The record is a 171-nucleotide sequence from Procavia capensis, which matches "TUC338" in Rfam. It is annotated as a cis-regulatory element. It is one of the family's seed sequences. The family has 34 seed sequences and 75,615 matches in Rfam 15.1. Pairs were carried over by alignment from the consensus structure, which was predicted with WAR. NCBI's taxonomy places the organism under Eukaryota, Deuterostomia, Teleostomi, Tetrapoda, Procavia.
RNA sequence: UUGAAGGCGUGGAGACUGAAGUCCUCUCUAUAUCCACAGAACAGGUAUGGCACAGGCAGCGGCAGUGCAGCUUUUCCACUGUCCCACCAAUGUGCCUCAAUCCUAGCUAGGGGGAAUGCGUUUAGGGUAAGAGGGUUAUUCAGUCUCCAAGACCUUCAAUCCCUGGCUACU
Numbered sequence: 001u002u003g004a005a006g007g008c009g010u011g012g013a014g015a016c017u018g019a020a021g022u023c024c025u026c027u028c029u030a031u032a033u034c035c036a037c038a039g040a041a042c043a044g045g046u047a048u049g050g051c052a053c054a055g056g057c058a059g060c061g062g063c064a065g066u067g068c069a070g071c072u073u074u075u076c077c078a079c080u081g082u083c084c085c086a087c088c089a090a091u092g093u094g095c096c097u098c099a100a101u102c103c104u105a106g107c108u109a110g111g112g113g114g115a116a117u118g119c120g121u122u123u124a125g126g127g128u129a130a131g132a133g134g135g136u137u138a139u140u141c142a143g144u145c146u147c148c149a150a151g152a153c154c155u156u157c158a159a160u161c162c163c164u165g166g167c168u169a170c171u
Stems, first nucleotide, its partner, number of pairs: 002158003006153001010149011023135002026133002029131001031129004038104002041101001047097001050095005061083005108124004113119001
Dot-bracket structure: .(((.(...(((((((((((..((.((.(.((((...((.(.....(..(((((......(((((.............))))).......))))).)...).))...((((.(.....).)))).)))).)))))...)))))))))))...)..))).............